[Rfam]
RNA: FMN riboswitch aptamer (RFN element)
RNA sequence: CACAAGUUUCAGGGCAGGGUGGGAUUCCCUACUGGCGGUUGAGCCCGCGACCCGCGAAAGCGGCUGAUCCGGUAUGAUUCCGGAGCCAACGGUAUAGUCCGGACGGAAGAAACGAGGA
Numbered sequence: 001c002a003c004a005a006g007u008u009u010c011a012g013g014g015c016a017g018g019g020u021g022g023g024a025u026u027c028c029c030u031a032c033u034g035g036c037g038g039u040u041g042a043g044c045c046c047g048c049g050a051c052c053c054g055c056g057a058a059a060g061c062g063g064c065u066g067a068u069c070c071g072g073u074a075u076g077a078u079u080c081c082g083g084a085g086c087c088a089a090c091g092g093u094a095u096a097g098u099c100c101g102g103a104c105g106g107a108a109g110a111a112a113c114g115a116g117g118a
Stems, first nucleotide, its partner, number of pairs: 003116001006113005017029003031098002033088002035048004043086002052063002068084005090101003